Annotation:
A member of the RNA family "Small Cajal body specific RNA 8" from Branchiostoma floridae, 140 nucleotides long. The literature on the family includes a 2002 paper in EMBO J by Darzacq et al., "Cajal body-specific small nuclear RNAs: a novel class of 2'-O-methylation and pseudouridylation guide RNAs".
RNA sequence: GGGGAAUUUUUGAUACCUAGCCAGACAAAGUCAUGUUUGUGUUGGCACAAAAUUCCCAACAGCAGCGCCACCUGGCAUGCCUUCUGAUGACUGCAGUGAGUUGAGAGAAAUCACUGCAGACAGAUACGAGGCUUACAACU
Numbered sequence: 001g002g003g004g005a006a007u008u009u010u011u012g013a014u015a016c017c018u019a020g021c022c023a024g025a026c027a028a029a030g031u032c033a034u035g036u037u038u039g040u041g042u043u044g045g046c047a048c049a050a051a052a053u054u055c056c057c058a059a060c061a062g063c064a065g066c067g068c069c070a071c072c073u074g075g076c077a078u079g080c081c082u083u084c085u086g087a088u089g090a091c092u093g094c095a096g097u098g099a100g101u102u103g104a105g106a107g108a109a110a111u112c113a114c115u116g117c118a119g120a121c122a123g124a125u126a127c128g129a130g131g132c133u134u135a136c137a138a139c140u
Stems, first nucleotide, its partner, number of pairs: 002057006017045004023038004077134001079132005091119003096114004

Description:
Lineage of the source: Eukaryota > Chordata > Cephalochordata > Leptocardii > Branchiostoma. Rfam describes the family as follows. scaRNAs are a specific class of small nuclear RNAs which localise to the Cajal bodies and guide the modification of RNA polymerase II transcribed spliceosomal RNAs U1, U2, U4, U5 and U12. U92 belong to the H/ACA box class of guide RNAs as it has the predicted hairpin-hinge-hairpin-tail structure, conserved H/ACA-box motifs and is found associated with GAR1. A search with the family's covariance model found it, with a score of 64 bits.